Notes
The record is a 339-nucleotide part of an RNA from Tychaedon coryphoeus, which matches "Eukaryotic large subunit ribosomal RNA" in Rfam.
RNA sequence: GAGUCUAGCACGUGCGCUCGUCAGGGACCUUUGUCGAAAGCCCGUGGGGCAAUGAAGGUGAGGGCCGGCACGCGCUGGCUGAGGUGGGAUCCCGGGGCACCUGUCGCGCCUGGCAGCCCCAGGCACACCAUCGGCCCGUCUCGCCCGCCACCCCCUCACGGGGCCGGGGAGGUGGAGCAUGAGCGUCUGUGCUAUGACCUGAAAGAUGGUGAACUAUGCUUGGGCAGGGCGAAGCCAGAGGAAACUCUGGUGGAGGUCCGUAGCAGUCCUGAAGUGCAAAUUGGUAGUCUGACCCUGGUCUAGGUGCGAAAGACUAAUCGAACCAUCUAGUAGCUGGUU
Numbered sequence: 001g002a003g004u005c006u007a008g009c010a011c012g013u014g015c016g017c018u019c020g021u022c023a024g025g026g027a028c029c030u031u032u033g034u035c036g037a038a039a040g041c042c043c044g045u046g047g048g049g050c051a052a053u054g055a056a057g058g059u060g061a062g063g064g065c066c067g068g069c070a071c072g073c074g075c076u077g078g079c080u081g082a083g084g085u086g087g088g089a090u091c092c093c094g095g096g097g098c099a100c101c102u103g104u105c106g107c108g109c110c111u112g113g114c115a116g117c118c119c120c121a122g123g124c125a126c127a128c129c130a131u132c133g134g135c136c137c138g139u140c141u142c143g144c145c146c147g148c149c150a151c152c153c154c155c156u157c158a159c160g161g162g163g164c165c166g167g168g169g170a171g172g173u174g175g176a177g178c179a180u181g182a183g184c185g186u187c188u189g190u191g192c193u194a195u196g197a198c199c200u201g202a203a204a205g206a207u208g209g210u211g212a213a214c215u216a217u218g219c220u221u222g223g224g225c226a227g228g229g230c231g232a233a234g235c236c237a238g239a240g241g242a243a244a245c246u247c248u249g250g251u252g253g254a255g256g257u258c259c260g261u262a263g264c265a266g267u268c269c270u271g272a273a274g275u276g277c278a279a280a281u282u283g284g285u286a287g288u289c290u291g292a293c294c295c296u297g298g299u300c301u302a303g304g305u306g307c308g309a310a311a312g313a314c315u316a317a318u319c320g321a322a323c324c325a326u327c328u329a330g331u332a333g334c335u336g337g338u339u
Stems, first nucleotide, its partner, number of pairs: 006194007014186004021047002025043002028040001030038001052059002083132005091123002134178002136175006145166001198337002201334001205327006214303003218299003222295003225291001227259004234251007263288002266285001268284002271282002306314001